[Rfam]
RNA sequence: UACUUAAACCAUCUGGGGGAUGGCUUGGCUUGAGUUGCCUAUGAAGGUCGCGGCAAGCAGCGAAAUUGCCUGGGCGAGGAGCAUGCAUCCUUUGAACCCAGGGUUACCUAAUGGGACAUCCUAUUCCACUCUUUCGGGGGUGGAAUGCUCCGUGUAGGAGCGGGAACCUGCCGAAUUGAAACAUCUUAGUAGGCAGAGGAAGAGAAAGCAAAAUUGCGAUACCGUGAGUAACGGCGAGCGAAAACGGUGAAGAACAAACUGAAUCCCCUUGUGAGAGCUUGGUGGAGAUGUGGUGUAGUAAGCCCUGAUUUAGAAUCCUCCUUGUGUGAAGUUGAAAUAUGACUGGAAUGUCAUUUUGCCGUAGAGGGUGAUAGCCCCGUAAAUGUAAACCAAAAGGAUUUUUUCAGUGUUGCUUGAGUAUCGUCGGUUGGAUAUCCGGCGUGAAUCUGGGAGGCAUCGACUCCUAAUUCUAAAUACAUCUCAAGACCGAUAGCGUAUUUAGUACCGUGAGGGAAAGCUGAAAAGAACCCCUAAAGGGGGGUGAAAAGAACCUGAAACCAGAUGGUGACAGCCU
Numbered sequence: 001u002a003c004u005u006a007a008a009c010c011a012u013c014u015g016g017g018g019g020a021u022g023g024c025u026u027g028g029c030u031u032g033a034g035u036u037g038c039c040u041a042u043g044a045a046g047g048u049c050g051c052g053g054c055a056a057g058c059a060g061c062g063a064a065a066u067u068g069c070c071u072g073g074g075c076g077a078g079g080a081g082c083a084u085g086c087a088u089c090c091u092u093u094g095a096a097c098c099c100a101g102g103g104u105u106a107c108c109u110a111a112u113g114g115g116a117c118a119u120c121c122u123a124u125u126c127c128a129c130u131c132u133u134u135c136g137g138g139g140g141u142g143g144a145a146u147g148c149u150c151c152g153u154g155u156a157g158g159a160g161c162g163g164g165a166a167c168c169u170g171c172c173g174a175a176u177u178g179a180a181a182c183a184u185c186u187u188a189g190u191a192g193g194c195a196g197a198g199g200a201a202g203a204g205a206a207a208g209c210a211a212a213a214u215u216g217c218g219a220u221a222c223c224g225u226g227a228g229u230a231a232c233g234g235c236g237a238g239c240g241a242a243a244a245c246g247g248u249g250a251a252g253a254a255c256a257a258a259c260u261g262a263a264u265c266c267c268c269u270u271g272u273g274a275g276a277g278c279u280u281g282g283u284g285g286a287g288a289u290g291u292g293g294u295g296u297a298g299u300a301a302g303c304c305c306u307g308a309u310u311u312a313g314a315a316u317c318c319u320c321c322u323u324g325u326g327u328g329a330a331g332u333u334g335a336a337a338u339a340u341g342a343c344u345g346g347a348a349u350g351u352c353a354u355u356u357u358g359c360c361g362u363a364g365a366g367g368g369u370g371a372u373a374g375c376c377c378c379g380u381a382a383a384u385g386u387a388a389a390c391c392a393a394a395a396g397g398a399u400u401u402u403u404u405c406a407g408u409g410u411u412g413c414u415u416g417a418g419u420a421u422c423g424u425c426g427g428u429u430g431g432a433u434a435u436c437c438g439g440c441g442u443g444a445a446u447c448u449g450g451g452a453g454g455c456a457u458c459g460a461c462u463c464c465u466a467a468u469u470c471u472a473a474a475u476a477c478a479u480c481u482c483a484a485g486a487c488c489g490a491u492a493g494c495g496u497a498u499u500u501a502g503u504a505c506c507g508u509g510a511g512g513g514a515a516a517g518c519u520g521a522a523a524a525g526a527a528c529c530c531c532u533a534a535a536g537g538g539g540g541g542u543g544a545a546a547a548g549a550a551c552c553u554g555a556a557a558c559c560a561g562a563u564g565g566u567g568a569c570a571g572c573c574u
Stems, first nucleotide, its partner, number of pairs: 008566009022552001023518002027488002029485006036478002045109004049062003069102006078090003113122003148160004167198001168196005178185002208217002221248005232238001251471004259293003271278002305407004315399004331384003337357001340353004360364001366378003422441006449465005505512002
Background
The family of this 574-nucleotide part of an RNA from Methanobacterium paludis is "Archaeal large subunit ribosomal RNA".